[Rfam]
RNA sequence: AUUCAGCGGGGGCCGGCUAAGAUCGCGAAGUCCUGUCGCAACACCGGCACUAGCACGCCCUGUCCG
Numbered sequence: 001a002u003u004c005a006g007c008g009g010g011g012g013c014c015g016g017c018u019a020a021g022a023u024c025g026c027g028a029a030g031u032c033c034u035g036u037c038g039c040a041a042c043a044c045c046g047g048c049a050c051u052a053g054c055a056c057g058c059c060c061u062g063u064c065c066g
Stems, first nucleotide, its partner, number of pairs: 012048005025039004053065001055063002

Bacillaceae-1 RNA: a 66-nucleotide sequence from Lentibacillus halodurans.